Shown here is an 86-nucleotide RNA sequence from Capsicum annuum, a member of the family "MIR8024 microRNA precursor family". Pairs were carried over by alignment from the consensus structure, which was predicted with RNAalifold. Taxonomically the source falls in Capsicum (Eukaryota, Magnoliopsida, Gunneridae, Pentapetalae). Rfam 15.1 lists 661 matches to the family in 8 species.
[Rfam]
RNA sequence: UUGAUAGAUUUGAGGACUUCAACUUGCAAAUUUAGCAAAUUUGGAGAUUUCAGUUUGCAGACUUGAUGAAUUUGACGAUUUCAACU
Numbered sequence: 001u002u003g004a005u006a007g008a009u010u011u012g013a014g015g016a017c018u019u020c021a022a023c024u025u026g027c028a029a030a031u032u033u034a035g036c037a038a039a040u041u042u043g044g045a046g047a048u049u050u051c052a053g054u055u056u057g058c059a060g061a062c063u064u065g066a067u068g069a070a071u072u073u074g075a076c077g078a079u080u081u082c083a084a085c086u
Stems, first nucleotide, its partner, number of pairs: 001084004006079001010075005017068001019066003025059004032053002035050001037048001

Source information:
Rfam links the family to the GO terms miRNA-mediated post-transcriptional gene silencing and RISC complex.